[Rfam]
RNA sequence: CUGUUAGGGGAAUGAUGUAUUACUAUAGAGCCCUCAAGAUGCUUGCUUAUCUUGACGGUGCAUCUGAGAUGGAUAUUAGACAG
Numbered sequence: 001c002u003g004u005u006a007g008g009g010g011a012a013u014g015a016u017g018u019a020u021u022a023c024u025a026u027a028g029a030g031c032c033c034u035c036a037a038g039a040u041g042c043u044u045g046c047u048u049a050u051c052u053u054g055a056c057g058g059u060g061c062a063u064c065u066g067a068g069a070u071g072g073a074u075a076u077u078a079g080a081c082a083g
Stems, first nucleotide, its partner, number of pairs: 001083005006076001

A member of the RNA family "Small nucleolar RNA J33" from Apium graveolens, 83 nucleotides long. A search with the family's covariance model found it, with a score of 81 bits. The literature on the family includes a 2003 paper in Nucleic Acids Res by Chen et al., "The high diversity of snoRNAs in plants: identification and comparative study of 120 snoRNA genes from Oryza sativa".